The record is a 54-nucleotide RNA from Streptosporangium roseum, which matches "L17-Actino-Proteobacteria ribosomal protein leader" in Rfam. The literature on the family includes a 2020 paper in BMC Microbiol by Eckert and Weinberg, "Discovery of 20 novel ribosomal leader candidates in bacteria and archaea". NCBI's taxonomy places the organism under Bacteria, Bacillati, Actinomycetes, Streptosporangiales, Streptosporangium. Rfam classes the family as a cis-regulatory leader.
RNA sequence: CGGGGAUCGAGCGAUUCCCCGGCCUGACCCCGGUACCUGAUACGGCCGGGGCGG
Numbered sequence: 001c002g003g004g005g006a007u008c009g010a011g012c013g014a015u016u017c018c019c020c021g022g023c024c025u026g027a028c029c030c031c032g033g034u035a036c037c038u039g040a041u042a043c044g045g046c047c048g049g050g051g052c053g054g
Stems, first nucleotide, its partner, number of pairs: 001021006007014002024054003028051007